RNA sequence: UGGCGCCCAACGUGGGGCUUGGACACUGGGGGCAAAAGUGAGGGAGGCGACGUAGAAGGGUCCACACACAAUAUAUCUCAAGUAGUCGGAGACGUCGUGGGAGCCUGCCACGACUGAAACCGAAGGUGAGUCAUCAGGUCGUCAAAACCGAAAUCAUGGGGCAAGAAUUAAGUCAGCAUCAGAUUUAUGUUAUACAGUUAAGGGAAGCUCUCAAGGCAAGAGGAGUAAAGGUUACAACUGAAGAUUUAUUUCAUUUCUUUGAUUUUGUAAAGGAACUUUGUCUUU
Numbered sequence: 001u002g003g004c005g006c007c008c009a010a011c012g013u014g015g016g017g018c019u020u021g022g023a024c025a026c027u028g029g030g031g032g033c034a035a036a037a038g039u040g041a042g043g044g045a046g047g048c049g050a051c052g053u054a055g056a057a058g059g060g061u062c063c064a065c066a067c068a069c070a071a072u073a074u075a076u077c078u079c080a081a082g083u084a085g086u087c088g089g090a091g092a093c094g095u096c097g098u099g100g101g102a103g104c105c106u107g108c109c110a111c112g113a114c115u116g117a118a119a120c121c122g123a124a125g126g127u128g129a130g131u132c133a134u135c136a137g138g139u140c141g142u143c144a145a146a147a148c149c150g151a152a153a154u155c156a157u158g159g160g161g162c163a164a165g166a167a168u169u170a171a172g173u174c175a176g177c178a179u180c181a182g183a184u185u186u187a188u189g190u191u192a193u194a195c196a197g198u199u200a201a202g203g204g205a206a207g208c209u210c211u212c213a214a215g216g217c218a219a220g221a222g223g224a225g226u227a228a229a230g231g232u233u234a235c236a237a238c239u240g241a242a243g244a245u246u247u248a249u250u251u252c253a254u255u256u257c258u259u260u261g262a263u264u265u266u267g268u269a270a271a272g273g274a275a276c277u278u279u280g281u282c283u284u285u
Stems, first nucleotide, its partner, number of pairs: 006031003012026003038048002086123002093116002096112005127163002131160002170211001172208002220260006229247005270285005